Source information:
A member of the RNA family "DUF805b RNA", 35 nucleotides long. The family's consensus secondary structure is taken from published work.
RNA sequence: UGGGAGGAGUCCGAAAAUCCCAAACAGAGUAGGAA
Numbered sequence: 001u002g003g004g005a006g007g008a009g010u011c012c013g014a015a016a017a018u019c020c021c022a023a024a025c026a027g028a029g030u031a032g033g034a035a
Base pairs, nucleotide, nucleotide: 002021003020004019005018010034011033012032
Rfam's curators put it in the seed alignment. Rfam classes the family as a cis-regulatory element.